Shown here is a 406-nucleotide RNA sequence from Chrysemys picta, a member of the family "Vertebrate telomerase RNA".
Its Rfam clan is "Telomerase clan".
The literature on the family includes a 2000 paper in Cell by Chen et al., "Secondary structure of vertebrate telomerase RNA".
NCBI's taxonomy places the organism under Eukaryota, Metazoa, Bilateria, Testudines, Chrysemys picta.
It is annotated as a non-coding RNA gene.
From the family's description: Telomerase is a ribonucleoprotein reverse transcriptase that synthesises telomeric DNA. Telomerase RNAs differ greatly in sequence and structure between vertebrates, ciliates and yeasts, but they share a 5' pseudoknot structure close to the template sequence. Vertebrate telomerase RNAs have a 3' H/ACA snoRNA-like domain.
Nucleotides: 406
Stems, first nucleotide, its partner, number of pairs: 003163003007157002010154001012152001017147005054107005067101009084139006090132003171322005177316001180306009196291004201286002205281005222254005228249004233242003256268004335398003340394007355384004362377004
Number, partner (000 for none) and nucleotide at each position: 001000u002000g003163c004162g005161g006000c007157g008156g009000c010154a011000c012152g013000g014000g015000g016000g017147g018146g019145c020144u021143c022000a023000g024000u025000c026000u027000u028000u029000c030000u031000a032000a033000c034000c035000c036000u037000a038000a039000g040000c041000g042000g043000a044000a045000c046000g047000u048000g049000g050000c051000c052000c053000c054107u055106c056105c057104c058103c059000g060000c061000c062000g063000c064000a065000g066000c067101c068100g069099u070098c071097c072096g073095c074094u075093g076000u077000u078000u079000u080000a081000c082000u083000c084139g085138c086137u087136g088135a089134c090132u091131u092130u093075c094074a095073g096072c097071g098070g099069a100068c101067g102000g103058g104057g105056g106055g107054a108000g109000c110000g111000g112000g113000c114000g115000g116000a117000g118000a119000c120000a121000c122000c123000a124000a125000c126000c127000a128000a129000a130092a131091a132090a133000c134089g135088u136087c137086a138085g139084c140000g141000a142000g143021g144020g145019g146018c147017c148000c149000u150000c151000c152012c153000c154010u155000c156008c157007c158000a159000c160000g161005c162004c163003g164000a165000c166000c167000u168000g169000g170000g171322c172321c173320g174319g175318u176000g177316g178000u179000g180306g181305g182304g183303c184302c185301c186300g187299c188298c189000a190000g191000a192000g193000a194000a195000g196291u197290c198289c199288c200000c201286g202285c203000c204000g205281c206280c207279c208278c209277g210000c211000c212000c213000u214000g215000g216000u217000g218000a219000g220000g221000c222254c223253g224252c225251g226250g227000u228249c229248a230247g231246c232000c233242g234241g235240u236000u237000c238000g239000c240235g241234c242233c243000a244000c245000u246231g247230c248229u249228g250226c251225c252224g253223c254222g255000a256268a257267g258266a259265g260000u261000u262000c263000g264000u265259c266258u267257c268256u269000g270000u271000c272000a273000g274000c275000c276000u277209c278208g279207g280206g281205g282000g283000c284000g285202g286201c287000c288199g289198g290197g291196g292000u293000g294000g295000a296000a297000g298188g299187g300186c301185g302184g303183g304182u305181c306180c307000c308000g309000g310000g311000c312000g313000g314000g315000u316177c317000g318175g319174c320173c321172g322171g323000g324000a325000g326000a327000g328000c329000a330000a331000a332000c333000g334000u335398g336397a337396g338000u339000g340394g341393c342392g343391g344390c345389c346388c347000c348000u349000g350000c351000g352000c353000a354000a355384c356383c357382g358381c359000c360000c361000u362377c363376c364375c365374c366000u367000g368000a369000g370000c371000u372000g373000u374365g375364g376363g377362g378000c379000c380000c381358g382357c383356g384355g385000u386000c387000g388346g389345g390344g391343c392342c393341g394340c395000u396337c397336u398335c399000a400000g401000a402000c403000a404000c405000g406000c